[Rfam]
RNA sequence: GUUUCAUCAAGAGCAGUCGAGGGAAUGGCCCCAUGACACUGCGGCAACCGCCAUAAGGUAUGGUGCCAACUCCAUCGGAUUACAUCCGGCAGAUGAAUC
Dot-bracket structure: (.((((((....(((((...(((.[[[[)))......)))))((((.(((((....)))..))))))...(]]]](((((...)))))..))))))).)
The family of this 99-nucleotide RNA from Megasphaera sp. AM44-1BH is "SAM riboswitch aptamer (S box leader)".
Its family is annotated with regulation of gene expression in the Gene Ontology.
It scores 85 bits against the family's covariance model.